[Rfam]
RNA: S10-Clostridia ribosomal protein leader
RNA sequence: UGAUAGCGUAGAAGCGUGAGGUUGCUGCUUUGCCGAGAGGCACUGCAGGUUUUCCGUGGAGCGAAUGUCAAGAGACCGGAAUUCCGGUCAAAGAACCUGACGGCAA
Numbered sequence: 001u002g003a004u005a006g007c008g009u010a011g012a013a014g015c016g017u018g019a020g021g022u023u024g025c026u027g028c029u030u031u032g033c034c035g036a037g038a039g040g041c042a043c044u045g046c047a048g049g050u051u052u053u054c055c056g057u058g059g060a061g062c063g064a065a066u067g068u069c070a071a072g073a074g075a076c077c078g079g080a081a082u083u084c085c086g087g088u089c090a091a092a093g094a095a096c097c098u099g100a101c102g103g104c105a106a
Stems, first nucleotide, its partner, number of pairs: 014057003018054004025048004066105004075088004